[Rfam]
RNA sequence: GUCCAAAACACAUCGGUGUCAUCUUUUGCAAGUACAUAUCUGUUUUCUCUGUGUGAAAAAAUACUUGCAGGGUGAUUUAGGC
Numbered sequence: 001g002u003c004c005a006a007a008a009c010a011c012a013u014c015g016g017u018g019u020c021a022u023c024u025u026u027u028g029c030a031a032g033u034a035c036a037u038a039u040c041u042g043u044u045u046u047c048u049c050u051g052u053g054u055g056a057a058a059a060a061a062u063a064c065u066u067g068c069a070g071g072g073u074g075a076u077u078u079a080g081g082c
Base pairs, nucleotide, nucleotide: 001082002081003080005078006077009074010073011072
A member of the RNA family "Small nucleolar RNA SNORD121A" from Calypte anna, 82 nucleotides long. For this family Rfam cites "snoSeeker: an advanced computational package for screening of guide and orphan snoRNA genes in the human genome" (Yang et al., Nucleic Acids Res, 2006). The family's consensus secondary structure was predicted with WAR.